[Rfam]
Nucleotides: 069
Base pairs, nucleotide, nucleotide: 003022004021009016010015043068044067045066051060052059053058
Number, partner (000 for none) and nucleotide at each position: 001000a002000a003022u004021u005000c006000g007000g008000c009016u010015c011000a012000g013000a014000a015010g016009a017000a018000a019000a020000c021004a022003g023000a024000g025000a026000a027000g028000c029000a030000g031000a032000u033000c034000u035000a036000u037000u038000c039000u040000a041000u042000a043068c044067c045066c046000g047000a048000u049000a050000a051060g052059u053058a054000u055000c056000a057000a058053u059052a060051c061000g062000c063000a064000a065000u066045g067044g068043g069000g
This 69-nucleotide sequence from Gossypium arboreum belongs to the Rfam family "Plastid-clpP 5UTR RNA".
Rfam 15.1 lists 2,105 matches to the family in 526 species.
From the family's description: Plastid clpP is a non-coding RNA (ncRNA) recognised in plastids. It was found in the prime untranslated region (5UTR) of a protease complex subunit (clpP) in plastids, suggesting a posible cis-regulatory function.
Pairs were carried over by alignment from the consensus structure, which was predicted with LocARNA.
The match comes from Rfam's covariance-model search (73 bits).
The literature on the family includes a 2023 paper in Plant Commun by Richter et al., "Retrograde signaling in plants: A critical review focusing on the GUN pathway and beyond".
It is annotated as a cis-regulatory element.
The source organism's lineage runs through Eukaryota, Embryophyta, Tracheophyta, Spermatophyta and Gossypium.